[Rfam]
RNA sequence: GCCUCCGAUGAUGAACAACUGUGUGUUUUUUUCUGAGUUGUUUCCAUGCUGAAAAUAUAGUGGAGACCUGAACUGAGGAGGC
Numbered sequence: 001g002c003c004u005c006c007g008a009u010g011a012u013g014a015a016c017a018a019c020u021g022u023g024u025g026u027u028u029u030u031u032u033c034u035g036a037g038u039u040g041u042u043u044c045c046a047u048g049c050u051g052a053a054a055a056u057a058u059a060g061u062g063g064a065g066a067c068c069u070g071a072a073c074u075g076a077g078g079a080g081g082c
Stems, first nucleotide, its partner, number of pairs: 003080004
A member of the RNA family "Small nucleolar RNA Z159/U59" from Lotus japonicus, 82 nucleotides long. Rfam's curators put it in the seed alignment. Gene Ontology terms of the family: RNA processing and nucleolus. The family has 10 seed sequences and 1,401 matches in Rfam 15.1.